[Rfam]
RNA: SAM/SAH riboswitch aptamer
RNA sequence: CAACCGCCACAACGGCUUCCUGACGUGGCGGGGAUAUCAUAACGGAGCA
Numbered sequence: 001c002a003a004c005c006g007c008c009a010c011a012a013c014g015g016c017u018u019c020c021u022g023a024c025g026u027g028g029c030g031g032g033g034a035u036a037u038c039a040u041a042a043c044g045g046a047g048c049a
Stems, first nucleotide, its partner, number of pairs: 004031007013022002015048003019045002